[Rfam]
RNA sequence: CUUUAAUAUGGUCAUGGUGUUGACCGCUACCCAACCGCUUGAUAUCAAGCUAAUGACACCUGCCUUUUC
Numbered sequence: 001c002u003u004u005a006a007u008a009u010g011g012u013c014a015u016g017g018u019g020u021u022g023a024c025c026g027c028u029a030c031c032c033a034a035c036c037g038c039u040u041g042a043u044a045u046c047a048a049g050c051u052a053a054u055g056a057c058a059c060c061u062g063c064c065u066u067u068u069c
Stems, first nucleotide, its partner, number of pairs: 010025004016060006037050004

Rfam assigns this 69-nucleotide sequence from Sulfobacillus thermosulfidooxidans to the family "Fluoride riboswitch aptamer (crcB RNA motif)". The family's consensus secondary structure is taken from published work. Gene Ontology terms of the family: positive regulation of gene expression and response to fluoride.